[Rfam]
IS605-orfB-I RNA: a 199-nucleotide sequence. Pairs were carried over by alignment from the consensus structure, which is taken from published work.
RNA sequence: UCUGGAUAAACUUGUAUUCACCCAAGAGAGUGGAGCAAGUCACUUUACGGAAUUAUAAUAAGUAACACAUUUUGGAAUUGAUAAAGACUUACAUAUAAGUGAAAUUCCGAAAUGUUAGGAUAACUGUACAUCCUUUAAUAUAUUUUAUAUUAUAAAAGCAAUCUUGAAUAUCUUGAUUAAGUUUUCAAGUUACGGUAAA
Number, nucleotide and partner (000 for none) at each position: 001u051002c050003u049004g048005g000006a046007u000008a044009a000010a040011c039012u038013u037014g036015u035016a000017u034018u033019c032020a031021c030022c028023c000024a000025a000026g000027a000028g022029a000030g021031u020032g019033g018034a017035g015036c014037a013038a012039g011040u010041c000042a000043c000044u008045u000046u006047a000048c004049g003050g002051a001052a000053u000054u000055a000056u000057a000058a000059u000060a000061a000062g000063u000064a000065a000066c000067a000068c114069a113070u112071u111072u000073u109074g108075g107076a106077a105078u104079u103080g000081a000082u000083a000084a000085a000086g000087a100088c099089u000090u097091a000092c000093a000094u000095a000096u000097a090098a000099g088100u087101g000102a000103a079104a078105u077106u076107c075108c074109g073110a000111a071112a070113u069114g068115u000116u000117a134118g133119g132120a131121u130122a000123a196124c195125u194126g193127u192128a191129c158130a121131u120132c119133c118134u117135u000136u152137a151138a150139u149140a148141u000142a000143u000144u000145u000146u000147a000148u140149a139150u138151u137152a136153u000154a000155a000156a000157a000158g129159c000160a000161a000162u000163c189164u188165u187166g186167a185168a184169u000170a000171u000172c000173u000174u000175g000176a000177u000178u000179a000180a000181g000182u000183u000184u168185u167186c166187a165188a164189g163190u000191u128192a127193c126194g125195g124196u123197a000198a000199a000
The sequence is in the family's curated seed alignment.